[Rfam]
RNA sequence: CACGAUCGCAAACAUUCUUGUGGUGGGUAGGCGUAUGGGCAGGAUGGUGUAACCAUCCGGCGAAAGCCACCCAUGCGCAAAUCGAGGCUCCUCCGGGGGCCUUUUUUUAUGCCUGAA
Numbered sequence: 001c002a003c004g005a006u007c008g009c010a011a012a013c014a015u016u017c018u019u020g021u022g023g024u025g026g027g028u029a030g031g032c033g034u035a036u037g038g039g040c041a042g043g044a045u046g047g048u049g050u051a052a053c054c055a056u057c058c059g060g061c062g063a064a065a066g067c068c069a070c071c072c073a074u075g076c077g078c079a080a081a082u083c084g085a086g087g088c089u090c091c092u093c094c095g096g097g098g099g100c101c102u103u104u105u106u107u108u109a110u111g112c113c114u115g116a117a
Stems, first nucleotide, its partner, number of pairs: 007025001009023001026113004031078009042058006060067002084103008
Annotation
This 117-nucleotide sequence from Phytoamicus setariae belongs to the Rfam family "Rhizobiales sRNA Atu_C8". A search with the family's covariance model found it, with a score of 109 bits. A reference for the family is Wilms et al. (2012), "Deep sequencing uncovers numerous small RNAs on all four replicons of the plant pathogen Agrobacterium tumefaciens", RNA Biol. The organism belongs to Phytoamicus, within Bacteria.